[Rfam]
RNA sequence: GAAAUUCGGAGCGACGCACUCCUCCUCCCAGCGCCGUUCCGACCUGAUUGGCAACACUCCUCCUCCCGGUUGCCAAUCGCCUUAAAUGACGCCCGCUGGAUCUCCUCCCCCAGCGGGCGUUAUUC
Numbered sequence: 001g002a003a004a005u006u007c008g009g010a011g012c013g014a015c016g017c018a019c020u021c022c023u024c025c026u027c028c029c030a031g032c033g034c035c036g037u038u039c040c041g042a043c044c045u046g047a048u049u050g051g052c053a054a055c056a057c058u059c060c061u062c063c064u065c066c067c068g069g070u071u072g073c074c075a076a077u078c079g080c081c082u083u084a085a086a087u088g089a090c091g092c093c094c095g096c097u098g099g100a101u102c103u104c105c106u107c108c109c110c111c112a113g114c115g116g117g118c119g120u121u122a123u124u125c
Base pairs, nucleotide, nucleotide: 007041008040009039011037012036013035015033016032017031046078047077048076049075050074051073052072053071054070055069089120090119091118092117093116094115095114096113097112098111099110
Alphaproteobacterial ar14: a 125-nucleotide sequence from Pararhizobium antarcticum. Rfam's curators write: Smr14C2 was renamed NfeR1 (Nodule Formation Efficiency RNA) highly expressed in salt stress and during the symbiotic interaction on legume roots. The base pairs follow the family's consensus structure. It is annotated as a small RNA. NCBI's taxonomy places the organism under Bacteria, Pseudomonadati, Alphaproteobacteria, Hyphomicrobiales, Pararhizobium. The literature on the family includes a 2017 paper in Environ Microbiol by Robledo et al., "A conserved alpha-proteobacterial small RNA contributes to osmoadaptation and symbiotic efficiency of rhizobia on legume roots".